[Rfam]
RNA: Nitrogen stress-induced RNA 1
RNA sequence: UGGUAGAUGCACCCUGAUGAUUCACCCCUGGCUUAGGUUGGGGGUUUUUUGU
Numbered sequence: 001u002g003g004u005a006g007a008u009g010c011a012c013c014c015u016g017a018u019g020a021u022u023c024a025c026c027c028c029u030g031g032c033u034u035a036g037g038u039u040g041g042g043g044g045u046u047u048u049u050u051g052u
Stems, first nucleotide, its partner, number of pairs: 002013003025044008